A member of the RNA family "CpoB/ybgF ICR thermometer" from Photobacterium lipolyticum, 145 nucleotides long. It is annotated as an RNA thermoregulator. Imprinting control region from upstream of cpoB/ybgF (tol/pal system protein).
Nucleotides: 145
Stems, first nucleotide, its partner, number of pairs: 001047003007041002014035003020029001055143001057141003065133004075124002078121001079119005086112003
Number, partner (000 for none) and nucleotide at each position: 001047c002046c003045a004000a005000a006000u007041c008040u009000c010000a011000a012000u013000c014035g015034u016033u017000a018000g019000c020029u021000a022000c023000g024000g025000u026000g027000a028000a029020g030000a031000a032000a033016a034015g035014c036000c037000u038000c039000u040008a041007g042000u043000u044000c045003u046002g047001g048000g049000c050000c051000a052000c053000a054000c055143u056000g057141a058140u059139a060000c061000u062000g063000a064000c065133u066132a067131u068130g069000c070000g071000a072000a073000g074000a075124a076123c077000c078121g079119u080118c081117g082116u083115g084000c085000g086112g087111u088110u089000c090000u091000u092000g093000u094000u095000u096000a097000c098000u099000a100000a101000u102000a103000a104000c105000a106000g107000g108000u109000a110088a111087a112086c113000a114000u115083u116082a117081u118080g119079a120000a121078c122000a123076g124075u125000a126000a127000c128000a129000u130068u131067a132066u133065g134000c135000g136000a137000a138000a139059u140058a141057u142000u143055g144000c145000a
The match comes from Rfam's covariance-model search (59 bits).
Taxonomically the source falls in Photobacterium (Bacteria, Pseudomonadota, Gammaproteobacteria, Vibrionales).
On this family, see Righetti et al., Proc Natl Acad Sci U S A 2016: "Temperature-responsive in vitro RNA structurome of Yersinia pseudotuberculosis".
The pairing is the family consensus, mapped onto this sequence.